[Rfam]
Shown here is an 82-nucleotide sequence from Drosophila persimilis, a member of the family "mir-263 microRNA precursor family".
RNA sequence: GGCAUUGGCUCUUGGCACUGGGAGAAUUCACAGUUGGUUUUCAUAUAUUCUGUGGUUCUGCGGGUGCCCAAAAUCGAAUGUU
Numbered sequence: 001g002g003c004a005u006u007g008g009c010u011c012u013u014g015g016c017a018c019u020g021g022g023a024g025a026a027u028u029c030a031c032a033g034u035u036g037g038u039u040u041u042c043a044u045a046u047a048u049u050c051u052g053u054g055g056u057u058c059u060g061c062g063g064g065u066g067c068c069c070a071a072a073a074u075c076g077a078a079u080g081u082u
Base pairs, nucleotide, nucleotide: 003080004079005077006076007075008074012071013070014068015067016066017065019063021061022059024058025057026056028055029054030053031052032051033050
Overview: Clan: mir-182 clan. Pairs were carried over by alignment from the consensus structure, which was predicted with RNAalifold. Gene Ontology terms of the family: miRNA-mediated post-transcriptional gene silencing and RISC complex. A reference for the family is Li et al. (2009), "Direct sequencing and expression analysis of a large number of miRNAs in Aedes aegypti and a multi-species survey of novel mosquito miRNAs", BMC Genomics.